This 364-nucleotide RNA sequence from Paraphoma chrysanthemicola belongs to the Rfam family "Nuclear RNase P". Ribonuclease P (RNase P) is a ubiquitous endoribonuclease, found in archaea, bacteria and eukarya as well as chloroplasts and mitochondria.
[Rfam]
RNA sequence: UGCCUUUCCAACGCUGCGUUUCUUUGCACACAUACAGACGCUGCUUACCCAGUUGUCCUACCAUGCAAAUGAGAAAUUCGGAGUAAUCUUCACCUUUUUUUACCUUCGGGUAGUACUGCCCGUAAGGGCCUGGCGUGACUCACGUCUGCACUCGGCAUCAGAAAGCUCAGGGCCCAGAAAGCCGCUUGCCGCAAGGUGAGCGCGUGGACUGGUGUUCCUAUGGGAGUCGGUGCGAAGAUUGUGUGUCGGGAGCUCGCAAGAGCGACUGGCGACACUGUAGUACAAUACGCAGCGUACUUGACCCCGAGUAGCUUUGGCGAAAGGGCGAUGGGUAUCAUUCGAUUCUGAUUACUCGGGCGAGGCA
Number, nucleotide and partner (000 for none) at each position: 001u364002g363003c362004c361005u000006u000007u357008c356009c355010a000011a000012c000013g000014c000015u000016g000017c000018g000019u000020u000021u000022c000023u069024u068025u067026g066027c000028a000029c000030a000031c000032a000033u000034a000035c000036a000037g057038a056039c055040g053041c052042u051043g000044c000045u000046u000047a000048c000049c000050c000051a042052g041053u040054u000055g039056u038057c037058c000059u000060a000061c000062c000063a000064u000065g000066c026067a025068a024069a023070u000071g000072a000073g000074a000075a000076a000077u000078u000079c347080g346081g345082a344083g343084u000085a000086a000087u000088c237089u236090u235091c234092a000093c000094c000095u000096u000097u000098u000099u000100u000101u000102a000103c000104c000105u000106u000107c000108g000109g000110g000111u000112a000113g000114u000115a000116c000117u000118g129119c128120c127121c126122g000123u000124a000125a000126g121127g120128g119129c118130c000131u000132g146133g145134c144135g143136u142137g000138a000139c000140u000141c000142a136143c135144g134145u133146c132147u000148g233149c232150a231151c230152u000153c229154g228155g000156c000157a000158u000159c000160a000161g000162a000163a000164a000165g000166c000167u000168c000169a000170g219171g218172g217173c000174c000175c000176a000177g000178a000179a000180a000181g000182c000183c000184g000185c000186u000187u000188g000189c000190c000191g000192c000193a000194a000195g000196g000197u000198g000199a000200g000201c000202g000203c000204g000205u000206g000207g000208a000209c000210u000211g000212g000213u000214g000215u000216u000217c172218c171219u170220a000221u000222g000223g000224g000225a000226g000227u000228c154229g153230g151231u150232g149233c148234g091235a090236a089237g088238a000239u000240u000241g000242u000243g000244u000245g000246u000247c000248g000249g000250g000251a000252g000253c000254u000255c000256g000257c000258a000259a000260g000261a000262g000263c000264g000265a000266c000267u000268g000269g000270c000271g000272a000273c000274a000275c000276u000277g000278u000279a000280g000281u000282a000283c000284a000285a000286u000287a000288c000289g000290c000291a000292g000293c000294g335295u334296a333297c332298u331299u330300g329301a000302c000303c000304c000305c000306g000307a000308g000309u000310a000311g000312c000313u000314u000315u000316g000317g000318c000319g000320a000321a000322a000323g000324g000325g000326c000327g000328a000329u300330g299331g298332g297333u296334a295335u294336c000337a000338u000339u000340c000341g000342a000343u083344u082345c081346u080347g079348a000349u000350u000351a000352c000353u000354c000355g009356g008357g007358c000359g000360a000361g004362g003363c002364a001

Its family is annotated with ribonuclease P activity, ribonuclease P complex and tRNA processing in the Gene Ontology.